[Rfam]
RNA sequence: ACCAUUGCUUGACAAGGAGAGAGAGCACGCUAGUCGACAUUCAUGCACGGGACAUGAUUAUUGACAAGCGUGCUCUCCUUCGUUGUCAUAGAUUU
Numbered sequence: 001a002c003c004a005u006u007g008c009u010u011g012a013c014a015a016g017g018a019g020a021g022a023g024a025g026c027a028c029g030c031u032a033g034u035c036g037a038c039a040u041u042c043a044u045g046c047a048c049g050g051g052a053c054a055u056g057a058u059u060a061u062u063g064a065c066a067a068g069c070g071u072g073c074u075c076u077c078c079u080u081c082g083u084u085g086u087c088a089u090a091g092a093u094u095u
Stems, first nucleotide, its partner, number of pairs: 010088005017081001021077001023075001025073007033065002
RNA: MIR535 microRNA precursor family